Rfam assigns this 85-nucleotide RNA sequence from Esox lucius to the family "mir-135 microRNA precursor family". Gene Ontology terms of the family: RISC complex and gene silencing by miRNA.
RNA sequence: CCGCUGAUGUGUUCUAUGGCUUUCUAUUCCUAUGUGAUUCUCUCUAAUGUCACAUAGGGUCCAAAGCCAUUGGGUACGGAGUGGA
Number, nucleotide and partner (000 for none) at each position: 001c000002c084003g000004c000005u081006g000007a000008u078009g077010u076011g075012u074013u073014c072015u000016a070017u069018g068019g067020c066021u065022u064023u063024c000025u000026a000027u000028u059029c058030c057031u056032a055033u054034g053035u052036g051037a050038u000039u000040c000041u000042c000043u000044c000045u000046a000047a000048u000049g000050u037051c036052a035053c034054a033055u032056a031057g030058g029059g028060u000061c000062c000063a023064a022065a021066g020067c019068c018069a017070u016071u000072g014073g013074g012075u011076a010077c009078g008079g000080a000081g005082u000083g000084g002085a000